[Rfam]
RNA sequence: UUUGGCACCUCAAACAUCAGGGGUCUUCGUGCUGUAAAGCACGAAUGUCAAUCUGGCUAUAUGCUGGGAACUCCGUCCACUAUCUAAAUGUUGAAAAGUGGUUAGUAUCCUUCGUCCCAGUAAAAUGUUAUGCUGGAAAGCAUCGAAGGUGCGGACAAUCAGCAGGGAAGUCCUCUACUUGUUAAUAAAUUAACAUUAUAGUUAAUAAGUAUGACCCCUCAACGACUACACGCCGGACAUCCUAACAGAUUUAGGAUGGUGAUAUAGUCUGAACUACUAGGCGACUAGUAG
Numbered sequence: 001u002u003u004g005g006c007a008c009c010u011c012a013a014a015c016a017u018c019a020g021g022g023g024u025c026u027u028c029g030u031g032c033u034g035u036a037a038a039g040c041a042c043g044a045a046u047g048u049c050a051a052u053c054u055g056g057c058u059a060u061a062u063g064c065u066g067g068g069a070a071c072u073c074c075g076u077c078c079a080c081u082a083u084c085u086a087a088a089u090g091u092u093g094a095a096a097a098g099u100g101g102u103u104a105g106u107a108u109c110c111u112u113c114g115u116c117c118c119a120g121u122a123a124a125a126u127g128u129u130a131u132g133c134u135g136g137a138a139a140g141c142a143u144c145g146a147a148g149g150u151g152c153g154g155a156c157a158a159u160c161a162g163c164a165g166g167g168a169a170g171u172c173c174u175c176u177a178c179u180u181g182u183u184a185a186u187a188a189a190u191u192a193a194c195a196u197u198a199u200a201g202u203u204a205a206u207a208a209g210u211a212u213g214a215c216c217c218c219u220c221a222a223c224g225a226c227u228a229c230a231c232g233c234c235g236g237a238c239a240u241c242c243u244a245a246c247a248g249a250u251u252u253a254g255g256a257u258g259g260u261g262a263u264a265u266a267g268u269c270u271g272a273a274c275u276a277c278u279a280g281g282c283g284a285c286u287a288g289u290a291g
Stems, first nucleotide, its partner, number of pairs: 001021004030041003052237004057232001062164006072155005165218002177206001179204001181202004222270001224269005240256006276289005

Rfam assigns this 291-nucleotide RNA sequence from Chlamydomonas schloesseri to the family "Group I catalytic intron". The literature on the family includes a 1990 paper in Annu Rev Biochem by Cech, "Self-splicing of group I introns". Rfam's curators write: Group I catalytic introns are large self-splicing ribozymes. They catalyse their own excision from mRNA, tRNA and rRNA precursors in a wide range of organisms. The core secondary structure consists of 9 paired regions (P1-P9). These fold to essentially two domains - the P4-P6 domain (formed from the stacking of P5, P4, P6 and P6a helices) and the P3-P9 domain (formed from the P8, P3, P7 and P9 helices). The secondary structure mark-up for this family represents only this conserved core. Group I catalytic introns often have long ORFs inserted in loop regions. The window size for this search is chosen to minimise search time and catch the small examples. A larger window size will find more matches.